[Rfam]
RNA: NiCo (Nickel/Cobalt) riboswitch aptamer
Organism: Eubacterium sp. CAG:161
RNA sequence: ACAGUACAAACUGAUCAGACCAUUAACUUUGGUUAAGGAGUCGGGCCGUAACAUGGCAGUGGAAUUUAUUCAUCCACGGGACAGUA
Number, nucleotide and partner (000 for none) at each position: 001a000002c000003a000004g000005u000006a000007c000008a000009a000010a085011c084012u083013g082014a000015u000016c080017a000018g042019a041020c040021c000022a000023u035024u000025a033026a000027c031028u000029u000030u000031g027032g000033u025034u000035a023036a000037g000038g000039a000040g020041u019042c018043g000044g000045g057046c056047c055048g054049u053050a000051a000052c000053a049054u048055g047056g046057c045058a000059g077060u076061g075062g074063a073064a000065u000066u000067u000068a000069u000070u000071c000072a000073u063074c062075c061076a060077c059078g000079g000080g016081a000082c013083a012084g011085u010086a000